[Rfam]
RNA sequence: GUCUGUUCUUAAAUUAUCAGACCAUAGGAAGUGCCAUAUGACAAUGUAAACAACAGUUGCUUCUCCUCACUGCAAGUAUCCUCAUUUGGCCAUAACCUUUGUGGUUUGGUCUGGGCUGGAAUCUCCAUUUGCAGCUGGUUUGGUUUAGUUGUGUGCUUGAUUUUAAGCGGGUCCCUGAGUGAU
Numbered sequence: 001g002u003c004u005g006u007u008c009u010u011a012a013a014u015u016a017u018c019a020g021a022c023c024a025u026a027g028g029a030a031g032u033g034c035c036a037u038a039u040g041a042c043a044a045u046g047u048a049a050a051c052a053a054c055a056g057u058u059g060c061u062u063c064u065c066c067u068c069a070c071u072g073c074a075a076g077u078a079u080c081c082u083c084a085u086u087u088g089g090c091c092a093u094a095a096c097c098u099u100u101g102u103g104g105u106u107u108g109g110u111c112u113g114g115g116c117u118g119g120a121a122u123c124u125c126c127a128u129u130u131g132c133a134g135c136u137g138g139u140u141u142g143g144u145u146u147a148g149u150u151g152u153g154u155g156c157u158u159g160a161u162u163u164u165a166a167g168c169g170g171g172u173c174c175c176u177g178a179g180u181g182a183u
Base pairs, nucleotide, nucleotide: 001183002182003181070134071133072132073131074130075129076128077127079120080119081118083115088111089110090109091108092107094106095105096104097103
The record is a 183-nucleotide sequence from Triticum urartu, which matches "Small nucleolar RNA Z112" in Rfam. A search with the family's covariance model found it, with a score of 138 bits. The base pairs follow the family's consensus structure, which was predicted with PFOLD. Rfam classes the family as a C/D-box small nucleolar RNA. The family has 6 seed sequences and 427 matches in Rfam 15.1.